[Rfam]
RNA sequence: GACUCUAGGAGAGUAAGGGCAUCGCCUCCUUCAGUGAAGGACACUCCCUUCUGAUGGAGAAUGGAAACUCCCUUCUUCCUGCAGCAGCCAGCCUGCGGCGGCCCUGGUAGGACGGCGUGGACGCCCUAGGCUGUCACAGCUGCCCGUCGCCCCAGAAGGAGGGUCCCCCGAGC
Numbered sequence: 001g002a003c004u005c006u007a008g009g010a011g012a013g014u015a016a017g018g019g020c021a022u023c024g025c026c027u028c029c030u031u032c033a034g035u036g037a038a039g040g041a042c043a044c045u046c047c048c049u050u051c052u053g054a055u056g057g058a059g060a061a062u063g064g065a066a067a068c069u070c071c072c073u074u075c076u077u078c079c080u081g082c083a084g085c086a087g088c089c090a091g092c093c094u095g096c097g098g099c100g101g102c103c104c105u106g107g108u109a110g111g112a113c114g115g116c117g118u119g120g121a122c123g124c125c126c127u128a129g130g131c132u133g134u135c136a137c138a139g140c141u142g143c144c145c146g147u148c149g150c151c152c153c154a155g156a157a158g159g160a161g162g163g164u165c166c167c168c169c170g171a172g173c
Stems, first nucleotide, its partner, number of pairs: 003172003008168002011165001014159001016049004025040001029039004050156003057078001059075003063072002084147001087143002093139003097135007

The family of this 173-nucleotide sequence from Vicugna pacos is "FGF-1 internal ribosome entry site (IRES)".
On this family, see Martineau et al., Mol Cell Biol 2004: "Internal Ribosome Entry Site Structural Motifs Conserved among Mammalian Fibroblast Growth Factor 1 Alternatively Spliced mRNAs".
From the family's description: This family represents the FGF-1 internal ribosome entry site (IRES).